[Rfam]
malK-I RNA: a 182-nucleotide sequence. Rfam classes the family as a cis-regulatory element.

RNA sequence: UCUCAUGGCGCUUUUCCACUCCACAUCUAUGGAGGGGCGUACAUCCAAAAGGAGGUAAAACAUAACCGUUUGGCUCACGGUGCGGCAGUGUGGAGACCUGUCGUAAUGUCGGACGCUCUGAGAUACGGGCGGCGGCGAGGCGGUGAUGCGGAGGCUGAUCCGUCAGAGUCGGAAGCAUGAGC
Numbered sequence: 001u002c003u004c005a006u007g008g009c010g011c012u013u014u015u016c017c018a019c020u021c022c023a024c025a026u027c028u029a030u031g032g033a034g035g036g037g038c039g040u041a042c043a044u045c046c047a048a049a050a051g052g053a054g055g056u057a058a059a060a061c062a063u064a065a066c067c068g069u070u071u072g073g074c075u076c077a078c079g080g081u082g083c084g085g086c087a088g089u090g091u092g093g094a095g096a097c098c099u100g101u102c103g104u105a106a107u108g109u110c111g112g113a114c115g116c117u118c119u120g121a122g123a124u125a126c127g128g129g130c131g132g133c134g135g136c137g138a139g140g141c142g143g144u145g146a147u148g149c150g151g152a153g154g155c156u157g158a159u160c161c162g163u164c165a166g167a168g169u170c171g172g173a174a175g176c177a178u179g180a181g182c
Base pairs, nucleotide, nucleotide: 008040009039010038011037012036013035014034015033016032017031018030066080067079068078069077070172071171072170073169074168075167076166081105082104083103084102085101086100087099088098090097091096108136109135110134111133114131115130116129117128118127139164140163141162142161143160148155149154